The family of this 76-nucleotide RNA sequence from Crocodylus porosus is "Mammalian CPEB3 ribozyme". Rfam's curators write: The mammalian CPEB3 ribozyme is a self cleaving RNA located in the second intron of the CPEB3 gene which belongs to a family of genes regulating messenger RNA polyadenylation. Pairs were carried over by alignment from the consensus structure, which is taken from published work. Lineage of the source: Eukaryota > Deuterostomia > Chordata > Teleostomi > Crocodylus.
RNA sequence: GGUUGCAAGUUUGAGGCCAUAGCAGAAGCACUCAUGAUGUGGCUCUGUCAGAUUCCAAUGAAUCUGUGAUUCUGGU
Numbered sequence: 001g002g003u004u005g006c007a008a009g010u011u012u013g014a015g016g017c018c019a020u021a022g023c024a025g026a027a028g029c030a031c032u033c034a035u036g037a038u039g040u041g042g043c044u045c046u047g048u049c050a051g052a053u054u055c056c057a058a059u060g061a062a063u064c065u066g067u068g069a070u071u072c073u074g075g076u
Stems, first nucleotide, its partner, number of pairs: 013045002016043003021076001023074005028040003049066007